[Rfam]
RNA sequence: UUUUUAGUGUAAGUAUGUCCUAUAUAAUAUCUGGGACAUACUUAUACUUAAA
Dot-bracket structure: .....(((((((.(((.((((...........)))).))).)))))))....
Numbered sequence: 001u002u003u004u005u006a007g008u009g010u011a012a013g014u015a016u017g018u019c020c021u022a023u024a025u026a027a028u029a030u031c032u033g034g035g036a037c038a039u040a041c042u043u044a045u046a047c048u049u050a051a052a
Stems, first nucleotide, its partner, number of pairs: 006048007014040003018036004